RNA sequence: UAGAACAAUGUAGAUAAGGGAAGUCGGCAAAAUAGAUCCGUAACUUCGGGAAAAGGAUUGGCUCUAAGGAUCGGGCGCGUCGGGCCUUGCGCAAGAAGCUUGACUGUGAGCAGGCUGGGGACCGCUUUCGGGCGGUUUCUGGCUGGCGAGCGGACGAGUGGACGGCCUUGGCUCGUCCCUUCACGGGGGCGGUCUGGCGCGCGUUUAACGAUCGACUUAGAACUGGUACGGACAAGGGGAAUCUGACUGUCUAAUUAAAACAUAGCAUUGCGAUGGUCGCAAGUCGGUGUUGACGCAAUGUGAUUUCUGCCCAGUGCUCUGAAUGUCAAAGUGAAGAAAUUCAACCAAGCGCGGGUAAACGGCGGGAGUAACUAUGACUCUCUUAAGGUAGCCAAAUGCCUCGUCAUCUAAUUAGUGACGCGCAUGAAUGGAUUAACGAGAUUCCCACUGUCCCUAUCUACUAUCUAGCGAAACCACAGCCAAGGGAACGGGCUUGGCGGA
Numbered sequence: 001u002a003g004a005a006c007a008a009u010g011u012a013g014a015u016a017a018g019g020g021a022a023g024u025c026g027g028c029a030a031a032a033u034a035g036a037u038c039c040g041u042a043a044c045u046u047c048g049g050g051a052a053a054a055g056g057a058u059u060g061g062c063u064c065u066a067a068g069g070a071u072c073g074g075g076c077g078c079g080u081c082g083g084g085c086c087u088u089g090c091g092c093a094a095g096a097a098g099c100u101u102g103a104c105u106g107u108g109a110g111c112a113g114g115c116u117g118g119g120g121a122c123c124g125c126u127u128u129c130g131g132g133c134g135g136u137u138u139c140u141g142g143c144u145g146g147c148g149a150g151c152g153g154a155c156g157a158g159u160g161g162a163c164g165g166c167c168u169u170g171g172c173u174c175g176u177c178c179c180u181u182c183a184c185g186g187g188g189g190c191g192g193u194c195u196g197g198c199g200c201g202c203g204u205u206u207a208a209c210g211a212u213c214g215a216c217u218u219a220g221a222a223c224u225g226g227u228a229c230g231g232a233c234a235a236g237g238g239g240a241a242u243c244u245g246a247c248u249g250u251c252u253a254a255u256u257a258a259a260a261c262a263u264a265g266c267a268u269u270g271c272g273a274u275g276g277u278c279g280c281a282a283g284u285c286g287g288u289g290u291u292g293a294c295g296c297a298a299u300g301u302g303a304u305u306u307c308u309g310c311c312c313a314g315u316g317c318u319c320u321g322a323a324u325g326u327c328a329a330a331g332u333g334a335a336g337a338a339a340u341u342c343a344a345c346c347a348a349g350c351g352c353g354g355g356u357a358a359a360c361g362g363c364g365g366g367a368g369u370a371a372c373u374a375u376g377a378c379u380c381u382c383u384u385a386a387g388g389u390a391g392c393c394a395a396a397u398g399c400c401u402c403g404u405c406a407u408c409u410a411a412u413u414a415g416u417g418a419c420g421c422g423c424a425u426g427a428a429u430g431g432a433u434u435a436a437c438g439a440g441a442u443u444c445c446c447a448c449u450g451u452c453c454c455u456a457u458c459u460a461c462u463a464u465c466u467a468g469c470g471a472a473a474c475c476a477c478a479g480c481c482a483a484g485g486g487a488a489c490g491g492g493c494u495u496g497g498c499g500g501a
Stems, first nucleotide, its partner, number of pairs: 001467004010461007018453003035059005044049001060224002063221006069213005075202009084172003089167001091166002098159005104153004110147002113144014225229001237446007244438002248262003265301008276288004305432003309363003314360002316356004321352001324351003332343004364382006383387001403419005480497005
Dot-bracket structure: ((((.....(((((((.(((..............(((((....(....).....)))))((.(((((((((((.((((((((((((..(.((.....(((((.((((..((.((((((((((((((....)))))))))))))).))..)))).))))).....)))..))).....................)))))))))......)))))..)))))).))(...).......(((((((((..(((.........)))..((((((((...((((.....)))).....))))))))...(((.(((..((((((.(..(((.....((((....)))).....))))))))..)))))((((((.......))))))(...)...............(((((.......)))))..........)))....)).)))))))....))).)))))))..))))............(((((........)))))....
Rfam assigns this 501-nucleotide part of an RNA from Suillus discolor to the family "Eukaryotic large subunit ribosomal RNA". Its Rfam clan is "LSU clan". The source organism's lineage runs through Eukaryota, Opisthokonta, Basidiomycota, Agaricomycetidae and Suillus. A search with the family's covariance model found it, with a score of 3372 bits.